[Rfam]
RNA sequence: CCAGAUCUCCAUCGUUUCUUACGGUAAAGAAAAACCUGCAGUACUGGGUCAUGACGAAGCGGCGUAUGCCAAAAACCGUCGUGCGGUACUGGUUUACUAAGAGAAUUGCAUGAGCAGUAACUUCAGACAUCAACUAUUG
Dot-bracket structure: ((((..((.....((((.((........)).))))....))..))))......(..(....(..(.((......((.(((((((.((.((...........)).)).)))))).).)).....)).)..)....)..).
Numbered sequence: 001c002c003a004g005a006u007c008u009c010c011a012u013c014g015u016u017u018c019u020u021a022c023g024g025u026a027a028a029g030a031a032a033a034a035c036c037u038g039c040a041g042u043a044c045u046g047g048g049u050c051a052u053g054a055c056g057a058a059g060c061g062g063c064g065u066a067u068g069c070c071a072a073a074a075a076c077c078g079u080c081g082u083g084c085g086g087u088a089c090u091g092g093u094u095u096a097c098u099a100a101g102a103g104a105a106u107u108g109c110a111u112g113a114g115c116a117g118u119a120a121c122u123u124c125a126g127a128c129a130u131c132a133a134c135u136a137u138u139g
Stems, first nucleotide, its partner, number of pairs: 001047004007041002014035004019030002054138001057135001062130001065127001067125002075118002078115001079113006086106002089103002